[Rfam]
RNA sequence: GGGUGGCCGGUACCCUACGCUGCCGAUUUACAUAAUAUAAAUUGUAAAUGCUGCAGUAGUAGGGAUCUGGACGCGC
Numbered sequence: 001g002g003g004u005g006g007c008c009g010g011u012a013c014c015c016u017a018c019g020c021u022g023c024c025g026a027u028u029u030a031c032a033u034a035a036u037a038u039a040a041a042u043u044g045u046a047a048a049u050g051c052u053g054c055a056g057u058a059g060u061a062g063g064g065a066u067c068u069g070g071a072c073g074c075g076c
Base pairs, nucleotide, nucleotide: 003074004073005072007070008069014063015062016061017060018059019057020056021055022054023053027048028047029046030045031044032043
The record is a 76-nucleotide sequence from Lymphocryptovirus humangamma4, which matches "mir-BART14 microRNA precursor family" in Rfam.
Lineage of the source: Viruses > Duplodnaviria > Heunggongvirae > Orthoherpesviridae > Lymphocryptovirus humangamma4.
Rfam links the family to the GO terms miRNA-mediated post-transcriptional gene silencing and RISC complex.
Rfam's curators put it in the seed alignment.